[Rfam]
RNA sequence: AAACAGCGGCUGUAACGGAGUGCCUCGCGCACGGGCCAACCUCUUU
Numbered sequence: 001a002a003a004c005a006g007c008g009g010c011u012g013u014a015a016c017g018g019a020g021u022g023c024c025u026c027g028c029g030c031a032c033g034g035g036c037c038a039a040c041c042u043c044u045u046u
Base pairs, nucleotide, nucleotide: 008037009036010035011034020032021031022030023029

Rfam assigns this 46-nucleotide RNA sequence from Colidextribacter sp. OB.20 to the family "ssnA RNA". The organism belongs to Colidextribacter, within Bacteria. The match comes from Rfam's covariance-model search (45 bits). By type it is a cis-regulatory element. Pairs were carried over by alignment from the consensus structure, which is taken from published work.